[Rfam]
RNA sequence: AGUGUUUUGAAGUCCACUUAAAUAGAACUUC
Numbered sequence: 001a002g003u004g005u006u007u008u009g010a011a012g013u014c015c016a017c018u019u020a021a022a023u024a025g026a027a028c029u030u031c
Stems, first nucleotide, its partner, number of pairs: 001018004009031005014025001
Rfam assigns this 31-nucleotide RNA sequence from Pomovirus solibetae to the family "Pseudoknot of upstream pseudoknot domain (UPD) of the 3'UTR". A reference for the family is Leathers et al. (1993), "A phylogenetically conserved sequence within viral 3' untranslated RNA pseudoknots regulates translation", Mol Cell Biol. Rfam links the family to the GO term regulation of viral transcription. By type it is a cis-regulatory element.